[Rfam]
Description: The family of this 247-nucleotide RNA from Cytobacillus kochii is "T-box leader". Rfam 15.1 lists 19,395 matches to the family in 1,923 species. Taxonomically the source falls in Cytobacillus (Bacteria, Bacillota, Caryophanales, Bacillaceae). A search with the family's covariance model found it, with a score of 138 bits.

RNA sequence: ACGUAAGCAAUGACGAAGAGUAGUAUCUUAUAUAUGCUCAUUUUAGAGAGCUGAUGGUUGGUGGGAAUCAGUGGGUGAUAUAAGUGAAUGGACUUCCGAGCUUCCAGACCGAACCUUUUAUAACUAGUAGGCUCUGGCGAAUGUCUCAUCGUUAAAAGAGAUAAAUACGAAUUUGUUAUUCGUAUUUGUUAAGUGAGUUGUAAUUUACAGCUAAUAAAGGUGGCACCACGGGUCUCUCGUCCUUUUU
Numbered sequence: 001a002c003g004u005a006a007g008c009a010a011u012g013a014c015g016a017a018g019a020g021u022a023g024u025a026u027c028u029u030a031u032a033u034a035u036g037c038u039c040a041u042u043u044u045a046g047a048g049a050g051c052u053g054a055u056g057g058u059u060g061g062u063g064g065g066a067a068u069c070a071g072u073g074g075g076u077g078a079u080a081u082a083a084g085u086g087a088a089u090g091g092a093c094u095u096c097c098g099a100g101c102u103u104c105c106a107g108a109c110c111g112a113a114c115c116u117u118u119u120a121u122a123a124c125u126a127g128u129a130g131g132c133u134c135u136g137g138c139g140a141a142u143g144u145c146u147c148a149u150c151g152u153u154a155a156a157a158g159a160g161a162u163a164a165a166u167a168c169g170a171a172u173u174u175g176u177u178a179u180u181c182g183u184a185u186u187u188g189u190u191a192a193g194u195g196a197g198u199u200g201u202a203a204u205u206u207a208c209a210g211c212u213a214a215u216a217a218a219g220g221u222g223g224c225a226c227c228a229c230g231g232g233u234c235u236c237u238c239g240u241c242c243u244u245u246u247u
Stems, first nucleotide, its partner, number of pairs: 007101002015096004027084005039075001041073001050072006104137005109131002138151003196212007217244004228240005